[Rfam]
RNA sequence: GUAGGGUAUGGUGACAUGGUCCCGACCACCAUUGGUGGCAAGAUUGUGGGCUCCCUCUGUGCCAUUGCAGGUGUGCUGACAAUUGCCUUGCCCGUGCCUGUCAUUGUUUCCAAC
Number, nucleotide and partner (000 for none) at each position: 001g114002u113003a000004g111005g110006g000007u000008a107009u106010g105011g104012u000013g102014a101015c100016a099017u000018g097019g000020u000021c094022c000023c000024g000025a000026c000027c000028a000029c000030c000031a000032u000033u000034g000035g000036u000037g077038g076039c075040a074041a000042g000043a000044u000045u000046g000047u000048g000049g063050g062051c061052u000053c000054c000055c000056u000057c000058u000059g000060u000061g051062c050063c049064a000065u000066u000067g000068c000069a000070g000071g000072u000073g000074u040075g039076c038077u037078g000079a000080c000081a000082a000083u000084u000085g000086c000087c000088u000089u000090g000091c000092c000093c000094g021095u000096g000097c018098c000099u016100g015101u014102c013103a000104u011105u010106g009107u008108u000109u000110c005111c004112a000113a002114c001
RNA: Potassium channel RNA editing signal